c-di-GMP-I riboswitch aptamer: a 95-nucleotide sequence from Sutcliffiella cohnii. Rfam's curators write: GEMM was predicted in a large-scale screen for bacterial structured RNA regulatory elements.
[Rfam]
RNA sequence: AAGUGAAAAAGGCAAAUCAUAGGAAACUAUGAGACGCAAAGCCAAGGACCUGUUCUGCGUGAUAGAUAAAACGUGGAUGGUAGCCGGUUGCCACA
Numbered sequence: 001a002a003g004u005g006a007a008a009a010a011g012g013c014a015a016a017u018c019a020u021a022g023g024a025a026a027c028u029a030u031g032a033g034a035c036g037c038a039a040a041g042c043c044a045a046g047g048a049c050c051u052g053u054u055c056u057g058c059g060u061g062a063u064a065g066a067u068a069a070a071a072c073g074u075g076g077a078u079g080g081u082a083g084c085c086g087g088u089u090g091c092c093a094c095a
Stems, first nucleotide, its partner, number of pairs: 012037002017032006040089004046085002048081003056075005